[Rfam]
A member of the RNA family "SR1 sRNA" from Shouchella clausii, 224 nucleotides long. The match comes from Rfam's covariance-model search (53 bits). NCBI's taxonomy places the organism under Bacteria, Bacilli, Bacillaceae, Shouchella, Shouchella clausii.
RNA sequence: CAUAAGCAAUAGAAAGCGAUUCCAACCUAAUGAAGAGGAGCGAUGCAAGUGGGUACAAUUGUUUGCCAACAUUGUAAUGAAGCCGUGGAGCAUUUCGAAGGGGAAAAAGUCAGCCGUUUGUACGCGGUAUCAUCUUGCUCACGUUGCCAGCAACAAACGACUGAAACGCUCGCGAAUAAAUAGACGAUAAUGAACACCUUGCAAGGAUGACUGCAAGGUGUUUU
Numbered sequence: 001c002a003u004a005a006g007c008a009a010u011a012g013a014a015a016g017c018g019a020u021u022c023c024a025a026c027c028u029a030a031u032g033a034a035g036a037g038g039a040g041c042g043a044u045g046c047a048a049g050u051g052g053g054u055a056c057a058a059u060u061g062u063u064u065g066c067c068a069a070c071a072u073u074g075u076a077a078u079g080a081a082g083c084c085g086u087g088g089a090g091c092a093u094u095u096c097g098a099a100g101g102g103g104a105a106a107a108a109g110u111c112a113g114c115c116g117u118u119u120g121u122a123c124g125c126g127g128u129a130u131c132a133u134c135u136u137g138c139u140c141a142c143g144u145u146g147c148c149a150g151c152a153a154c155a156a157a158c159g160a161c162u163g164a165a166a167c168g169c170u171c172g173c174g175a176a177u178a179a180a181u182a183g184a185c186g187a188u189a190a191u192g193a194a195c196a197c198c199u200u201g202c203a204a205g206g207a208u209g210a211c212u213g214c215a216a217g218g219u220g221u222u223u224u
Stems, first nucleotide, its partner, number of pairs: 016110002020107002031097005050085003054081001056079002062077002139175002142172002193222011